[Rfam]
RNA sequence: GCCGGGCGUCGUGGCGGGCGCCUGUGAAUCGGCUUCUCGAUGGCAGAGCGCAGGAAUGGAGUGCGGCGCGGAGUUCUCCGUUGGCGUCGGCCGGCGGAGACCGAGCGUCCAGGCCAAGCGCUGCGUCGACAAGGGUCGUCGGGAGGAGUCCCGGUGGCGCUGGUCGCAUAAUGAGGGAUGGACGGCUCAGGGCCGAGAGGCAGCAGGCAAAAGUCCCCGCGCAGUGACAGUGGUCGGAUAGCGCACGCGAGUCGGUCGCCCACCGGAGCCGUGCUCACACCUUCAGACUUGCUCUCGU
Numbered sequence: 001g002c003c004g005g006g007c008g009u010c011g012u013g014g015c016g017g018g019c020g021c022c023u024g025u026g027a028a029u030c031g032g033c034u035u036c037u038c039g040a041u042g043g044c045a046g047a048g049c050g051c052a053g054g055a056a057u058g059g060a061g062u063g064c065g066g067c068g069c070g071g072a073g074u075u076c077u078c079c080g081u082u083g084g085c086g087u088c089g090g091c092c093g094g095c096g097g098a099g100a101c102c103g104a105g106c107g108u109c110c111a112g113g114c115c116a117a118g119c120g121c122u123g124c125g126u127c128g129a130c131a132a133g134g135g136u137c138g139u140c141g142g143g144a145g146g147a148g149u150c151c152c153g154g155u156g157g158c159g160c161u162g163g164u165c166g167c168a169u170a171a172u173g174a175g176g177g178a179u180g181g182a183c184g185g186c187u188c189a190g191g192g193c194c195g196a197g198a199g200g201c202a203g204c205a206g207g208c209a210a211a212a213g214u215c216c217c218c219g220c221g222c223a224g225u226g227a228c229a230g231u232g233g234u235c236g237g238a239u240a241g242c243g244c245a246c247g248c249g250a251g252u253c254g255g256u257c258g259c260c261c262a263c264c265g266g267a268g269c270c271g272u273g274c275u276c277a278c279a280c281c282u283u284c285a286g287a288c289u290u291g292c293u294c295u296c297g298u
Base pairs, nucleotide, nucleotide: 001044002043003042004023005022006021007020008019009018010017028041029040030039046296047295048294050292051291052290053289054288057285058284059283060282061281065275066274067273068272069271070270071269076268077267078266079265080264082262083261086259087258089256091255092254093253094252095251102247103246105244106243107242108241109237110236112235113234114233115232116231118228119226120225121224122223123222124221125220126219127166128165129164130163132161133160135158136157137156138155139154140153141152142151143150144149167173168172175217176216177215178214179213185208186207187206192201193200194199

Shown here is a 298-nucleotide RNA from Steinernema hermaphroditum, a member of the family "Metazoan signal recognition particle RNA". From the family's description: The signal recognition particle (SRP) is a universally conserved ribonucleoprotein. It is involved in the co-translational targeting of proteins to membranes. The eukaryotic SRP consists of a 300-nucleotide 7S RNA and six proteins: SRPs 72, 68, 54, 19, 14, and 9. Archaeal SRP consists of a 7S RNA and homologues of the eukaryotic SRP19 and SRP54 proteins. The family's consensus secondary structure is taken from published work. Its Rfam clan is "SRP clan". By type it is a non-coding RNA gene. The organism belongs to Steinernema, within Eukaryota.